The record is a 128-nucleotide RNA from Rhizobium sp. Root482, which matches "Alphaproteobacterial ar14" in Rfam.
A search with the family's covariance model found it, with a score of 77 bits.
The organism belongs to Rhizobium, within Bacteria.
Gene Ontology term of the family: biological process involved in symbiotic interaction.
[Rfam]
RNA sequence: CGAUUUCAGACGGCCCACUCCUCCUCCCAAGGGACGUCUGUCGGAACAGCGGCACUCCUCCUCUUGAGCUGUCUGAUCGGUUCUUUUCGGAAAGCCUGCCGCACCUCCUCCCGCGGCGGGUUUUUCGU
Numbered sequence: 001c002g003a004u005u006u007c008a009g010a011c012g013g014c015c016c017a018c019u020c021c022u023c024c025u026c027c028c029a030a031g032g033g034a035c036g037u038c039u040g041u042c043g044g045a046a047c048a049g050c051g052g053c054a055c056u057c058c059u060c061c062u063c064u065u066g067a068g069c070u071g072u073c074u075g076a077u078c079g080g081u082u083c084u085u086u087u088c089g090g091a092a093a094g095c096c097u098g099c100c101g102c103a104c105c106u107c108c109u110c111c112c113g114c115g116g117c118g119g120g121u122u123u124u125u126c127g128u
Stems, first nucleotide, its partner, number of pairs: 007040006014033003044078002047075003050071004092123011

Background:
The literature on the family includes a 2012 paper in RNA Biol by del Val et al., "A survey of sRNA families in alpha-proteobacteria". Rfam describes the family as follows. Smr14C2 was renamed NfeR1 (Nodule Formation Efficiency RNA) highly expressed in salt stress and during the symbiotic interaction on legume roots.